[Rfam]
RNA: Small nucleolar RNA Z122
RNA sequence: UUUGGGAAAUGAUGGAAAGAUUGGAUUCAAAUCGUCUCCUCUGUUAAACAGAGACUCCAAUGGGUGUCCUAUGCGCGUCCUAUGCUCUGAUUUCUUUUGCAGGUCAGUCUGAUCCCAAC
Number, nucleotide and partner (000 for none) at each position: 001u000002u118003u117004g116005g115006g114007a113008a000009a000010u000011g000012a000013u000014g000015g000016a000017a000018a000019g000020a000021u000022u000023g000024g000025a000026u000027u000028c000029a000030a000031a000032u000033c000034g000035u000036c000037u000038c000039c000040u000041c000042u000043g000044u000045u000046a000047a000048a000049c000050a000051g000052a000053g000054a000055c000056u000057c000058c000059a000060a000061u000062g000063g000064g000065u000066g000067u000068c000069c000070u000071a000072u000073g000074c000075g000076c000077g000078u000079c000080c000081u000082a000083u000084g000085c000086u000087c000088u000089g000090a000091u000092u000093u000094c000095u000096u000097u000098u000099g000100c000101a000102g000103g000104u000105c000106a000107g000108u000109c000110u000111g000112a000113u007114c006115c005116c004117a003118a002119c000